[Rfam]
RNA sequence: AAGCGUUGAAGUAGAGGGCUGUUUCAAGUCGCAGUGUUCUACGGAGCUUUGUUGGGGGUUGUGCAUUAACCACAACUUGAAUAGGCGCAAGCCGAAAGAAAAUGCUCUCA
Numbered sequence: 001a002a003g004c005g006u007u008g009a010a011g012u013a014g015a016g017g018g019c020u021g022u023u024u025c026a027a028g029u030c031g032c033a034g035u036g037u038u039c040u041a042c043g044g045a046g047c048u049u050u051g052u053u054g055g056g057g058g059u060u061g062u063g064c065a066u067u068a069a070c071c072a073c074a075a076c077u078u079g080a081a082u083a084g085g086c087g088c089a090a091g092c093c094g095a096a097a098g099a100a101a102a103u104g105c106u107c108u109c110a
Stems, first nucleotide, its partner, number of pairs: 001049004011042006018035005024080004063105003084093003
A member of the RNA family "drum RNA", 110 nucleotides long. The family's consensus secondary structure is taken from published work. From the family's description: Firmicutes, Bacteroidetes (1 example), Proteobacteria (2 examples), Spirochaetes (2 examples).